[Rfam]
RNA: Bacterial large subunit ribosomal RNA, nucleotides 2082 to 2670
RNA sequence: CCCGCGACAAGACGGAAAGACCCCGUGGAGCUUUACUGCAGCCUGAUAUUGAAUCUAGGUACGGCUUGUACAGGAUAGGUGGGAGUCGCUGAAGCCGGAGCGCCAGCUUCGGUGGAGACGCCGGUGGGAUACCACUCUGGCCGUAUCGGGGUUCUAACUCGCCGCCGUCAGCCGGCGGGAGGACCGUGUCAGGUGGGCAGUUUGACUGGGGCGGUCGCCUCCUAAAAGGUAACGGAGGCGCUCCAAGGUUCCCUCAGCGCGGUCGGAAAUCGCGCCUACAGAGUGCAAAGGCAGAAGGGAGCUUGACUGCGAGACCGACAAGUCGAGCAGGGACGAAAGUCGGACUUAGUGAUCCGGUGGUUCCGUGUGGAAGGGCCAUCGCUCAACGGAUAAAAGCUACCCCGGGGAUAACAGGCUUAUCUCCCCCAAGAGUCCACAUCGACGGGGAGGUUUGGCACCUCGAUGUCGGCUCAUCGCAUCCUGGGGCUGAAGUAGGUCCCAAGGGUUGGGCUGUUCGCCCAUUAAAGCGGUACGCGAGCUGGGUUCAGAACGUCGUGAGACAGUUCGGUCCCUAUCUGUCGCGGGCGCA
Numbered sequence: 001c002c003c004g005c006g007a008c009a010a011g012a013c014g015g016a017a018a019g020a021c022c023c024c025g026u027g028g029a030g031c032u033u034u035a036c037u038g039c040a041g042c043c044u045g046a047u048a049u050u051g052a053a054u055c056u057a058g059g060u061a062c063g064g065c066u067u068g069u070a071c072a073g074g075a076u077a078g079g080u081g082g083g084a085g086u087c088g089c090u091g092a093a094g095c096c097g098g099a100g101c102g103c104c105a106g107c108u109u110c111g112g113u114g115g116a117g118a119c120g121c122c123g124g125u126g127g128g129a130u131a132c133c134a135c136u137c138u139g140g141c142c143g144u145a146u147c148g149g150g151g152u153u154c155u156a157a158c159u160c161g162c163c164g165c166c167g168u169c170a171g172c173c174g175g176c177g178g179g180a181g182g183a184c185c186g187u188g189u190c191a192g193g194u195g196g197g198c199a200g201u202u203u204g205a206c207u208g209g210g211g212c213g214g215u216c217g218c219c220u221c222c223u224a225a226a227a228g229g230u231a232a233c234g235g236a237g238g239c240g241c242u243c244c245a246a247g248g249u250u251c252c253c254u255c256a257g258c259g260c261g262g263u264c265g266g267a268a269a270u271c272g273c274g275c276c277u278a279c280a281g282a283g284u285g286c287a288a289a290g291g292c293a294g295a296a297g298g299g300a301g302c303u304u305g306a307c308u309g310c311g312a313g314a315c316c317g318a319c320a321a322g323u324c325g326a327g328c329a330g331g332g333a334c335g336a337a338a339g340u341c342g343g344a345c346u347u348a349g350u351g352a353u354c355c356g357g358u359g360g361u362u363c364c365g366u367g368u369g370g371a372a373g374g375g376c377c378a379u380c381g382c383u384c385a386a387c388g389g390a391u392a393a394a395a396g397c398u399a400c401c402c403c404g405g406g407g408a409u410a411a412c413a414g415g416c417u418u419a420u421c422u423c424c425c426c427c428a429a430g431a432g433u434c435c436a437c438a439u440c441g442a443c444g445g446g447g448a449g450g451u452u453u454g455g456c457a458c459c460u461c462g463a464u465g466u467c468g469g470c471u472c473a474u475c476g477c478a479u480c481c482u483g484g485g486g487c488u489g490a491a492g493u494a495g496g497u498c499c500c501a502a503g504g505g506u507u508g509g510g511c512u513g514u515u516c517g518c519c520c521a522u523u524a525a526a527g528c529g530g531u532a533c534g535c536g537a538g539c540u541g542g543g544u545u546c547a548g549a550a551c552g553u554c555g556u557g558a559g560a561c562a563g564u565u566c567g568g569u570c571c572c573u574a575u576c577u578g579u580c581g582c583g584g585g586c587g588c589a
Base pairs, nucleotide, nucleotide: 001585002584003583004582005581006580007579008578010577011576012575014572015571022406023405024404025403027402028401029398030397031396032395033394035201036200037199038198042193043192044191045190046189047188048187051154052153053152054151055150056149058147059146060145061144062143063142064141065140066139068137078136079135080134081133082132085119086118087117094113095112096111097110098109099108100107101106158181159180160179162178163177164176165175166174167173204216205215206214207213217239218238219237220236221235222234240387242344243343248302249301250300251299252298253297254282255281257275258274259273260272261271262270283292284291307330308329309328310327313324314323315322332341333340334339355381356380357379358378359377360376361375363374364373415456416455417454419453420450421449422448423447424446425445426444430440431439467542468540469539470538471537472534473531474530475529476528477527480505481504483500484499485498486497487496488495507521508520509519510518511517548566549565550564551563552561553560554559